[Rfam]
RNA sequence: GGCCGACGUCGCGACUGGCGUUCAGAUGGCCACCAUCGGGGAGCGACUGCCACGGACCGACCGCUCGCCUGGGCCGGGACG
Numbered sequence: 001g002g003c004c005g006a007c008g009u010c011g012c013g014a015c016u017g018g019c020g021u022u023c024a025g026a027u028g029g030c031c032a033c034c035a036u037c038g039g040g041g042a043g044c045g046a047c048u049g050c051c052a053c054g055g056a057c058c059g060a061c062c063g064c065u066c067g068c069c070u071g072g073g074c075c076g077g078g079a080c081g
Stems, first nucleotide, its partner, number of pairs: 005050001008047005015040002017069004026036004058076002061073002